RNA sequence: UAAACCAGUUUAAUGUUUUCUGCACAGACCCUGGCUUUUCUUAAAUUUUAUAUAUUGGAAACCCCGUGUUUGUAUUGGACCUUCUGGUUUG
Numbered sequence: 001u002a003a004a005c006c007a008g009u010u011u012a013a014u015g016u017u018u019u020c021u022g023c024a025c026a027g028a029c030c031c032u033g034g035c036u037u038u039u040c041u042u043a044a045a046u047u048u049u050a051u052a053u054a055u056u057g058g059a060a061a062c063c064c065c066g067u068g069u070u071u072g073u074a075u076u077g078g079a080c081c082u083u084c085u086g087g088u089u090u091g
Stems, first nucleotide, its partner, number of pairs: 002090007015081001018079003022075001024073006033064002036061005